The record is a 136-nucleotide sequence from Trabulsiella odontotermitis, which matches "Group II catalytic intron D1-D4-4" in Rfam. Taxonomically the source falls in Trabulsiella (Bacteria, Gammaproteobacteria, Enterobacterales, Enterobacteriaceae). About the family: Group II introns are found in rRNA, tRNA and mRNA of organelles in fungi, plants and protists, and also in mRNA in bacteria. A search with the family's covariance model found it, with a score of 91 bits. The literature on the family includes a 2003 paper in Crit Rev Biochem Mol Biol by Lehmann and Schmidt, "Group II introns: structure and catalytic versatility of large natural ribozymes".

[Rfam]
RNA sequence: CAGUGGGUGAAAAUCCCACCCGGCAACUGUCGUUCCAGCCGGUAGCAAUCAAAGCAGUCGUGGAGGUAUCAAAGCGGCUGAAUCCUUUGAUAAAGGGGUAGUAUGUGCUCCAGCGAAUAUACAGGCCAUAACAUGA
Dot-bracket structure: ...................(((((.............))))).......(((((((((((....(....)....))))))....))))).....((((((.....)))))).(.(...........).).......
Rfam links the family to the GO term Group II intron splicing.